[Rfam]
The record is a 171-nucleotide RNA sequence from Eubacterium ventriosum, which matches "Clostridiales-1 RNA" in Rfam. The match comes from Rfam's covariance-model search (118 bits).
RNA sequence: UGAUUACAACGUCAAAAAGUCUUAUCCCGCUUGUGCCUGCACAAUAAAGGGAUGAUGACUUUGAGACACGCCCACAAUAUGAGCAUAAAAGUGAAGUGCAAACUUCACAAUAUGCGAAUAUUGAGGGGAAGGAUUGUGGGAGUGUGAAGCACGCAACAAUCCGUGUAAUCA
Numbered sequence: 001u002g003a004u005u006a007c008a009a010c011g012u013c014a015a016a017a018a019g020u021c022u023u024a025u026c027c028c029g030c031u032u033g034u035g036c037c038u039g040c041a042c043a044a045u046a047a048a049g050g051g052a053u054g055a056u057g058a059c060u061u062u063g064a065g066a067c068a069c070g071c072c073c074a075c076a077a078u079a080u081g082a083g084c085a086u087a088a089a090a091g092u093g094a095a096g097u098g099c100a101a102a103c104u105u106c107a108c109a110a111u112a113u114g115c116g117a118a119u120a121u122u123g124a125g126g127g128g129a130a131g132g133a134u135u136g137u138g139g140g141a142g143u144g145u146g147a148a149g150c151a152c153g154c155a156a157c158a159a160u161c162c163g164u165g166u167a168a169u170c171a
Stems, first nucleotide, its partner, number of pairs: 001171007011067003016062006022055007031046001032043004073125001075123006083115004091108007131162007142152004